[Rfam]
RNA sequence: CGACCCCACGCGGGAGAGUUCGGGCAGGUCACAGCCUGGCCCGGCGCCGAAGGAGCAAUUCCUCCCCGGAACCUCUCAGGCACCCAGGACCGCGCGGGCGAG
Numbered sequence: 001c002g003a004c005c006c007c008a009c010g011c012g013g014g015a016g017a018g019u020u021c022g023g024g025c026a027g028g029u030c031a032c033a034g035c036c037u038g039g040c041c042c043g044g045c046g047c048c049g050a051a052g053g054a055g056c057a058a059u060u061c062c063u064c065c066c067c068g069g070a071a072c073c074u075c076u077c078a079g080g081c082a083c084c085c086a087g088g089a090c091c092g093c094g095c096g097g098g099c100g101a102g
Base pairs, nucleotide, nucleotide: 006097007096009094010093011092012091013090020044021043022042023041024040025039046081047080048079049077050076053075054074055073059069060068
Source information
Glycine riboswitch aptamer: a 102-nucleotide RNA sequence from Herbihabitans rhizosphaerae. The match comes from Rfam's covariance-model search (59 bits). This family represents the bacterial glycine riboswitch. NCBI's taxonomy places the organism under Bacteria, Bacillati, Actinomycetota, Actinomycetes, Herbihabitans.